RNA sequence: CCCUGUGAGCUUCCCUUUGUCAUCCUAUGCCUGAGCGAUGCCUGGAGGCUGGGACGGCCAAGGGAGGCCCACGGGCUGCCACC
Numbered sequence: 001c002c003c004u005g006u007g008a009g010c011u012u013c014c015c016u017u018u019g020u021c022a023u024c025c026u027a028u029g030c031c032u033g034a035g036c037g038a039u040g041c042c043u044g045g046a047g048g049c050u051g052g053g054a055c056g057g058c059c060a061a062g063g064g065a066g067g068c069c070c071a072c073g074g075g076c077u078g079c080c081a082c083c
Stems, first nucleotide, its partner, number of pairs: 012065006019058002023054005029049004
Rfam assigns this 83-nucleotide RNA to the family "mir-204 microRNA precursor family". Gene Ontology terms of the family: miRNA-mediated post-transcriptional gene silencing and RISC complex. It is one of the family's seed sequences.